[Rfam]
RNA: ZMP/ZTP riboswitch aptamer (pfl RNA motif)
RNA sequence: GCGCGCGGUCGUGACUGGCGCAGGUGGAGACAACCACCGGGGAGCGGCCGCAGCCGCCUCGACCGUGCACCGCCCGCCUGGGUGCCGGGG
Numbered sequence: 001g002c003g004c005g006c007g008g009u010c011g012u013g014a015c016u017g018g019c020g021c022a023g024g025u026g027g028a029g030a031c032a033a034c035c036a037c038c039g040g041g042g043a044g045c046g047g048c049c050g051c052a053g054c055c056g057c058c059u060c061g062a063c064c065g066u067g068c069a070c071c072g073c074c075c076g077c078c079u080g081g082g083u084g085c086c087g088g089g090g
Base pairs, nucleotide, nucleotide: 005051006050007049008048009047010046011045012044015041016040017078018077019076020075024037025036026035027034067085068084069083070082071081